[Rfam]
RNA sequence: CGCCCGUCCAUUGGGGAGUAGCCACCCUUCACGAAGGGGCGCGUGCCAACAGACUCGGGUGUCAUGCCCGUGGCGCGUGCGGCUUACGGAACAUCGUCCGCUAAGGCGACGAUGUGAUCCGGCGGUUCGGCGAGACUGAUGGCACGACCGCCGCCCGAAGGCC
Numbered sequence: 001c002g003c004c005c006g007u008c009c010a011u012u013g014g015g016g017a018g019u020a021g022c023c024a025c026c027c028u029u030c031a032c033g034a035a036g037g038g039g040c041g042c043g044u045g046c047c048a049a050c051a052g053a054c055u056c057g058g059g060u061g062u063c064a065u066g067c068c069c070g071u072g073g074c075g076c077g078u079g080c081g082g083c084u085u086a087c088g089g090a091a092c093a094u095c096g097u098c099c100g101c102u103a104a105g106g107c108g109a110c111g112a113u114g115u116g117a118u119c120c121g122g123c124g125g126u127u128c129g130g131c132g133a134g135a136c137u138g139a140u141g142g143c144a145c146g147a148c149c150g151c152c153g154c155c156c157g158a159a160g161g162c163c
Stems, first nucleotide, its partner, number of pairs: 026037003039080010056070005081163005087157001
Notes:
Rfam assigns this 163-nucleotide sequence from Skermanella aerolata to the family "Manganese Mn2+ riboswitch aptamer (yybP-ykoY)". It scores 55 bits against the family's covariance model. The source organism's lineage runs through Bacteria, Pseudomonadati, Rhodospirillales, Azospirillaceae and Skermanella. Rfam's curators write: This RNA was originally discovered in E. coli during a large scale screen and was named SraF. The family was later found to exist upstream of related families of protein genes in many bacteria, including the the yybP and ykoK genes in B. subtilis. The specific functions of these proteins are unknown, but this structured RNA element may be involved in their genetic regulation as a riboswitch. The pairing is the family consensus, mapped onto this sequence.